Shown here is a 137-nucleotide RNA from Cephalotus follicularis, a member of the family "MIR390 microRNA precursor family". The match comes from Rfam's covariance-model search (95 bits). For this family Rfam cites "Expression of Arabidopsis MIRNA genes" (Xie et al., Plant Physiol, 2005). The base pairs follow the family's consensus structure, which was predicted with WAR.
RNA sequence: AUGGAGAAUCUGUAAAGCUCAGGAGGGAUAGCGCCAUGACCAAUGAUGAUGAUGGUUGAGAUCAUUUUUGCCUUUAGAGUUAUGCCUUUAAUCAUGUUUAGCGGCGCUAUCUAUCCUGAGCAUCACGGGUUCUUCUU
Numbered sequence: 001a002u003g004g005a006g007a008a009u010c011u012g013u014a015a016a017g018c019u020c021a022g023g024a025g026g027g028a029u030a031g032c033g034c035c036a037u038g039a040c041c042a043a044u045g046a047u048g049a050u051g052a053u054g055g056u057u058g059a060g061a062u063c064a065u066u067u068u069u070g071c072c073u074u075u076a077g078a079g080u081u082a083u084g085c086c087u088u089u090a091a092u093c094a095u096g097u098u099u100a101g102c103g104g105c106g107c108u109a110u111c112u113a114u115c116c117u118g119a120g121c122a123u124c125a126c127g128g129g130u131u132c133u134u135c136u137u
Base pairs, nucleotide, nucleotide: 010128017121018120019119020118021117022116023115024114026112027111028110029109030108031107032106033105034104035103

Rfam 15.1 lists 649 matches to the family in 206 species. NCBI's taxonomy places the organism under Eukaryota, Embryophyta, rosids, Cephalotaceae, Cephalotus.